[Rfam]
RNA sequence: UAAAGGCGAAUAGCGCAAGCACUGAGCGGGGACAGCCGUUUCAGUAGACGAGGUAGAGGAGUAUCGAAGAAUCAGCGGAUGCCUCUCGGCCAGCUUCAGUCGUUAUAUAAAUUACAAAGUCCUGUGGUGACAGAGGAACAAAGGGUUUAUAGGAAGCUAUG
Numbered sequence: 001u002a003a004a005g006g007c008g009a010a011u012a013g014c015g016c017a018a019g020c021a022c023u024g025a026g027c028g029g030g031g032a033c034a035g036c037c038g039u040u041u042c043a044g045u046a047g048a049c050g051a052g053g054u055a056g057a058g059g060a061g062u063a064u065c066g067a068a069g070a071a072u073c074a075g076c077g078g079a080u081g082c083c084u085c086u087c088g089g090c091c092a093g094c095u096u097c098a099g100u101c102g103u104u105a106u107a108u109a110a111a112u113u114a115c116a117a118a119g120u121c122c123u124g125u126g127g128u129g130a131c132a133g134a135g136g137a138a139c140a141a142a143g144g145g146u147u148u149a150u151a152g153g154a155a156g157c158u159a160u161g
Stems, first nucleotide, its partner, number of pairs: 021045006029037001055086005064075001066073002087102004106151007121136003125132002
Rfam assigns this 161-nucleotide RNA sequence from Veillonella criceti to the family "glmS glucosamine-6-phosphate activated ribozyme aptamer". Rfam's curators write: This entry contains a glucosamine-6-phosphate activated ribozyme that is found in the mRNA for GlmS. GlmS is an enzyme that uses fructose-6-phosphate and glutamine to generate glucosamine-6-phosphate. The base pairs follow the family's consensus structure, which is taken from published work. The family's RNA type in Rfam is riboswitch. The match comes from Rfam's covariance-model search (85 bits).